The family of this 52-nucleotide RNA sequence from Falsiruegeria litorea is "ffh sRNA".
RNA sequence: UCGUUCAGGGAUCGCCCCCCACCAGCGUGUUACGCCCGUGGGGGUAAUCUUG
Numbered sequence: 001u002c003g004u005u006c007a008g009g010g011a012u013c014g015c016c017c018c019c020c021a022c023c024a025g026c027g028u029g030u031u032a033c034g035c036c037c038g039u040g041g042g043g044g045u046a047a048u049c050u051u052g
Base pairs, nucleotide, nucleotide: 016044017043018042019041020040021039022038025035026034027033028032
A search with the family's covariance model found it, with a score of 60 bits. For this family Rfam cites "Identification of candidate structured RNAs in the marine organism 'Candidatus Pelagibacter ubique'" (Meyer et al., BMC Genomics, 2009). Rfam classes the family as a small RNA. The source organism's lineage runs through Bacteria, Pseudomonadati, Roseobacteraceae, Falsiruegeria and Falsiruegeria litorea.